The record is a 105-nucleotide sequence from Planomicrobium sp. CPCC 101110, which matches "SAM riboswitch aptamer (S box leader)" in Rfam. The match comes from Rfam's covariance-model search (90 bits). Lineage of the source: Bacteria > Bacillota > Bacilli > Caryophanaceae > Planomicrobium. The base pairs follow the family's consensus structure, which is taken from published work. From the family's description: The SAM riboswitch is found upstream of a number of genes which code for proteins involved in methionine or cysteine biosynthesis in Gram-positive bacteria.
RNA sequence: GUCUUAUCAAGAGAAGCAAAGGGACAGGCCCGUCGAAGCUUCAGCAACCUCUGAAUUCACAGAAAGGUGCUAAUUCCUGCAAGAAUUUUUUCUUGAAGAUAAGAG
Number, nucleotide and partner (000 for none) at each position: 001g000002u104003c103004u102005u101006a100007u099008c098009a000010a000011g000012a000013g042014a041015a040016g039017c038018a000019a000020a000021g031022g030023g029024a000025c079026a078027g077028g076029c023030c022031c021032g000033u000034c000035g000036a000037a000038g017039c016040u015041u014042c013043a071044g070045c069046a068047a000048c067049c066050u063051c062052u061053g060054a000055a000056u000057u000058c000059a000060c053061a052062g051063a050064a000065a000066g049067g048068u046069g045070c044071u043072a000073a000074u000075u097076c028077c027078u026079g025080c095081a094082a093083g092084a091085a090086u000087u000088u000089u000090u085091u084092c083093u082094u081095g080096a000097a075098g008099a007100u006101a005102a004103g003104a002105g000